[Rfam]
RNA sequence: GACAAAGGGGGCGAGAAACCCCCUCACCGCAAGACUAAGGUUUCCUCAGCUAUGCUAAUCAGCUGAGGGUUAGUCGGGACCUAACGCGUACCCGAAGGGGGAAGUGGAUGGACAACGGGUUAAUAUUCCCGUACUACUUUAUGGAGCGAUGGAGAGACGCAGUGAUGAAAGCACCGCGAACUGACGGAAUAGUUCGUUGAAGGUUGUAGCUAUACGUCUUAUAGUUAAAUGCGUAAGAUGUGGCAAAGACUGAUAGUACUCGGAGUCUUCGGACAAAGAGAUAGUGUGCCUAAGGGCUGCCGAGAAAAUCUUCUAAGCAUAUUCAUAGAGUACCCGUACCGUAAACCGACACAGGUAGUCGAGGAGAGUAUCCUCAGGUGCU
Numbered sequence: 001g002a003c004a005a006a007g008g009g010g011g012c013g014a015g016a017a018a019c020c021c022c023c024u025c026a027c028c029g030c031a032a033g034a035c036u037a038a039g040g041u042u043u044c045c046u047c048a049g050c051u052a053u054g055c056u057a058a059u060c061a062g063c064u065g066a067g068g069g070u071u072a073g074u075c076g077g078g079a080c081c082u083a084a085c086g087c088g089u090a091c092c093c094g095a096a097g098g099g100g101g102a103a104g105u106g107g108a109u110g111g112a113c114a115a116c117g118g119g120u121u122a123a124u125a126u127u128c129c130c131g132u133a134c135u136a137c138u139u140u141a142u143g144g145a146g147c148g149a150u151g152g153a154g155a156g157a158c159g160c161a162g163u164g165a166u167g168a169a170a171g172c173a174c175c176g177c178g179a180a181c182u183g184a185c186g187g188a189a190u191a192g193u194u195c196g197u198u199g200a201a202g203g204u205u206g207u208a209g210c211u212a213u214a215c216g217u218c219u220u221a222u223a224g225u226u227a228a229a230u231g232c233g234u235a236a237g238a239u240g241u242g243g244c245a246a247a248g249a250c251u252g253a254u255a256g257u258a259c260u261c262g263g264a265g266u267c268u269u270c271g272g273a274c275a276a277a278g279a280g281a282u283a284g285u286g287u288g289c290c291u292a293a294g295g296g297c298u299g300c301c302g303a304g305a306a307a308a309u310c311u312u313c314u315a316a317g318c319a320u321a322u323u324c325a326u327a328g329a330g331u332a333c334c335c336g337u338a339c340c341g342u343a344a345a346c347c348g349a350c351a352c353a354g355g356u357a358g359u360c361g362a363g364g365a366g367a368g369u370a371u372c373c374u375c376a377g378g379u380g381c382u
Base pairs, nucleotide, nucleotide: 006024007023008022009021010020011019025380026379027378028377033360034359035358036357039340040339044068045067046066047065048064049063053061054060075336076335077334078333080111081110085106086105087104089102091100092099093098115132116131117130118129119128135332136331137330138329139328140327141326142325143324144323145322146318147317151313152312153311154310155309159300160299161298162297166292167291171287172286173285174284176197177196178195179194180193181192198256202251203250204249205248209244210243211242216239217238218237219236220235221234222233224232225231266275346355347354362374363373364372365371
RNA: Bacterial large subunit ribosomal RNA, nucleotides 1298 to 1679
Organism: Avrilella dinanensis